Shown here is a 102-nucleotide sequence from Cytobacillus dafuensis, a member of the family "Purine riboswitch aptamer". A search with the family's covariance model found it, with a score of 91 bits. Clan: Purine riboswitches. The source organism's lineage runs through Bacteria, Bacilli, Caryophanales, Bacillaceae and Cytobacillus.
RNA sequence: AAAUACUAAUAAAGAUUAACUCAUAUAAUCGCAGGAAUAUGGCUUGCAAGUUUCUACCGGGUUACCGUAAAUGACCUGACUAUGAGUAAGUAAUGAUCGGGA
Numbered sequence: 001a002a003a004u005a006c007u008a009a010u011a012a013a014g015a016u017u018a019a020c021u022c023a024u025a026u027a028a029u030c031g032c033a034g035g036a037a038u039a040u041g042g043c044u045u046g047c048a049a050g051u052u053u054c055u056a057c058c059g060g061g062u063u064a065c066c067g068u069a070a071a072u073g074a075c076c077u078g079a080c081u082a083u084g085a086g087u088a089a090g091u092a093a094u095g096a097u098c099g100g101g102a
Base pairs, nucleotide, nucleotide: 019087020086021085022084023083024082025081029049031047032046033045034044035043058078059077060076061075062074063073064072